Notes: Shown here is a 162-nucleotide sequence from Paenibacillus apis, a member of the family "PyrR binding site". The family's RNA type in Rfam is cis-regulatory element. A reference for the family is Bonner et al. (2001), "Molecular recognition of pyr mRNA by the Bacillus subtilis attenuation regulatory protein PyrR", Nucleic Acids Res. The source organism's lineage runs through Bacteria, Bacillati, Bacillota, Caryophanales and Paenibacillus. Gene Ontology terms of the family: pyrimidine nucleobase biosynthetic process and pyrimidine nucleobase transport.

RNA sequence: AGAACCUUUAAUUCAGUCCCGUGAGGCUGGCAAGGUAACGUGAAUGAGGUUGGGGAUAGAUAUGCCUGAAGCGGCAUGCUAUGCCUUGGACCUACAUGAUUGUCAUAGUGGGACACUAUGACCAGCGACUCCUUGCCUGAAUGCGGCAAGGAGUUUUUUUGU
Numbered sequence: 001a002g003a004a005c006c007u008u009u010a011a012u013u014c015a016g017u018c019c020c021g022u023g024a025g026g027c028u029g030g031c032a033a034g035g036u037a038a039c040g041u042g043a044a045u046g047a048g049g050u051u052g053g054g055g056a057u058a059g060a061u062a063u064g065c066c067u068g069a070a071g072c073g074g075c076a077u078g079c080u081a082u083g084c085c086u087u088g089g090a091c092c093u094a095c096a097u098g099a100u101u102g103u104c105a106u107a108g109u110g111g112g113a114c115a116c117u118a119u120g121a122c123c124a125g126c127g128a129c130u131c132c133u134u135g136c137c138u139g140a141a142u143g144c145g146g147c148a149a150g151g152a153g154u155u156u157u158u159u160u161g162u
Base pairs, nucleotide, nucleotide: 004036005035006034007033008032013030014029015028016027017026018025054085055084059080061078062077063076064075065074066073125157127155128154129153130152131151132150133149134148135147136146137145